[Rfam]
FMN riboswitch aptamer (RFN element): a 159-nucleotide RNA sequence from Aureibacillus halotolerans. Rfam 15.1 lists 6,230 matches to the family in 5,120 species.
Nucleotides: 159
Stems, first nucleotide, its partner, number of pairs: 004156007017029003031139002033128002035074004069126002078103005108124005130142003
Number, partner (000 for none) and nucleotide at each position: 001000a002000u003000a004156a005155a006154c007153c008152u009151u010150c011000g012000g013000g014000g015000c016000a017029g018028g019027g020000u021000g022000a023000a024000a025000u026000u027019c028018c029017c030000u031139a032138c033128c034127g035074g036073c037072g038071g039000u040000g041000a042000u043000g044000g045000a046000u047000c048000u049000g050000a051000c052000a053000u054000u055000u056000a057000g058000u059000u060000g061000u062000a063000u064000c065000c066000u067000c068000a069126g070125u071038c072037c073036g074035u075000g076000a077000c078103c079102c080101g081100u082099a083000a084000c085000g086000c087000a088000c089000g090000u091000a092000a093000g094000u095000g096000u097000g098000u099082u100081g101080c102079g103078g104000u105000g106000g107000a108124c109123c110122u111121g112120g113000u114000g115000a116000a117000a118000u119000u120112c121111u122110g123109g124108g125070a126069c127034c128033g129000a130142c131141a132140g133000u134000g135000a136000a137000a138032g139031u140132c141131u142130g143000g144000a145000u146000g147000g148000g149000a150010g151009a152008a153007g154006g155005u156004u157000a158000u159000g
Record summary:
The organism belongs to Aureibacillus, within Bacteria. A search with the family's covariance model found it, with a score of 104 bits.